[Rfam]
RNA sequence: AAACUAAUAUACCCAUAUUCUGAUGAUCACCUAGCCAGAAUAUGGGUAUAUUAGUUUGG
Number, nucleotide and partner (000 for none) at each position: 001a057002a056003a055004c054005u053006a052007a051008u050009a049010u048011a047012c046013c045014c044015a043016u042017a041018u040019u039020c038021u037022g036023a000024u000025g000026a000027u000028c000029a000030c000031c000032u000033a000034g000035c000036c022037a021038g020039a019040a018041u017042a016043u015044g014045g013046g012047u011048a010049u009050a008051u007052u006053a005054g004055u003056u002057u001058g000059g000
Source information: Shown here is a 59-nucleotide RNA sequence from Homo sapiens, a member of the family "mir-5583 microRNA precursor family". The source organism's lineage runs through Eukaryota, Craniata, Dipnotetrapodomorpha, Amniota and Homo. Pairs were carried over by alignment from the consensus structure, which was predicted with RNAalifold.